[Rfam]
RNA sequence: AUGUAGAUGAGAGGCCGCAGUCAUUAUGAGUAUCUAUUUUUUAGAAAAAGGGAUGAUUGCCGAAAUACUUUUUUUGUAUUGGGAUUGCAUUUAAUAGAUGUAAUACUGUCAGGAAAGAUUGCCCGAUCUUUUUUGGAGCACUCGCUGCAUU
Numbered sequence: 001a002u003g004u005a006g007a008u009g010a011g012a013g014g015c016c017g018c019a020g021u022c023a024u025u026a027u028g029a030g031u032a033u034c035u036a037u038u039u040u041u042u043a044g045a046a047a048a049a050g051g052g053a054u055g056a057u058u059g060c061c062g063a064a065a066u067a068c069u070u071u072u073u074u075u076g077u078a079u080u081g082g083g084a085u086u087g088c089a090u091u092u093a094a095u096a097g098a099u100g101u102a103a104u105a106c107u108g109u110c111a112g113g114a115a116a117g118a119u120u121g122c123c124c125g126a127u128c129u130u131u132u133u134u135g136g137a138g139c140a141c142u143c144g145c146u147g148c149a150u151u
Stems, first nucleotide, its partner, number of pairs: 006146001008144004017060009033045004064080005081107002084104008109136010